[Rfam]
RNA sequence: AAAAAGGGUCGGCUGGCUAAAUAUGCCACAUUCGCCCGCUGGGUGAGUGCUGUAUGGCUAUCAAGACAUAUGGCCGACAUAAUUUGUGGAACCUUAUAGGAUUGGCUCCUUGGCCGAUCCUCUUA
Numbered sequence: 001a002a003a004a005a006g007g008g009u010c011g012g013c014u015g016g017c018u019a020a021a022u023a024u025g026c027c028a029c030a031u032u033c034g035c036c037c038g039c040u041g042g043g044u045g046a047g048u049g050c051u052g053u054a055u056g057g058c059u060a061u062c063a064a065g066a067c068a069u070a071u072g073g074c075c076g077a078c079a080u081a082a083u084u085u086g087u088g089g090a091a092c093c094u095u096a097u098a099g100g101a102u103u104g105g106c107u108c109c110u111u112g113g114c115c116g117a118u119c120c121u122c123u124u125a
Base pairs, nucleotide, nucleotide: 008078009077010076011075012074014028015027016026017025029049030048031047032046033045034044035043036042037041050073051072052071053070054069055068056067096123098121099120100119101118102117103116104115105114106113107112
RNA: U11 spliceosomal RNA